PyrR binding site: a 113-nucleotide RNA sequence from Salipaludibacillus agaradhaerens.

[Rfam]
RNA sequence: ACAUCCUUUAAUAAAGUCCAGUGAGACUUCAAGGGUGUCCGAGUGAAGAAGGGGCAAGUGUAUCCUCUUCUUCUUCUGGAGCACCUUUCAAAGUGAAAGGUGCUCUUUUUUUA
Number, nucleotide and partner (000 for none) at each position: 001a000002c037003a036004u035005c034006c033007u032008u031009u000010a000011a000012u000013a000014a029015a028016g027017u026018c025019c000020a000021g000022u000023g000024a000025g018026a017027c016028u015029u014030c000031a008032a007033g006034g005035g004036u003037g002038u000039c000040c000041g000042a000043g000044u000045g073046a072047a071048g070049a069050a068051g067052g066053g065054g064055c000056a000057a000058g000059u000060g000061u000062a000063u000064c054065c053066u052067c051068u050069u049070c048071u047072u046073c045074u000075u000076c000077u000078g106079g105080a104081g103082c102083a101084c100085c099086u098087u097088u096089c095090a000091a000092a000093g000094u000095g089096a088097a087098a086099g085100g084101u083102g082103c081104u080105c079106u078107u000108u000109u000110u000111u000112u000113a000
NCBI's taxonomy places the organism under Bacteria, Bacillota, Caryophanales, Bacillaceae, Salipaludibacillus.
It scores 59 bits against the family's covariance model.
The family has 41 seed sequences and 1,498 matches in Rfam 15.1.
The base pairs follow the family's consensus structure, which is taken from published work.
It is annotated as a cis-regulatory element.